RNA sequence: UCUAGGGGAGCGCUUUGUCCACGUCAGCAAAAAAUGUGUCCUUGAGGGCACGUUUUGCUGACGUGGACAAAACGCUCCCCCAGGG
Numbered sequence: 001u002c003u004a005g006g007g008g009a010g011c012g013c014u015u016u017g018u019c020c021a022c023g024u025c026a027g028c029a030a031a032a033a034a035u036g037u038g039u040c041c042u043u044g045a046g047g048g049c050a051c052g053u054u055u056u057g058c059u060g061a062c063g064u065g066g067a068c069a070a071a072a073c074g075c076u077c078c079c080c081c082a083g084g085g
Base pairs, nucleotide, nucleotide: 001084002083003082005080006079007078008077009076010075011074012073014071015070016069017068018067019066020065021064023062024061025060026059027058028057029056032055033054034053035052036051037050038049040047041046
RNA: MIR7486 microRNA precursor family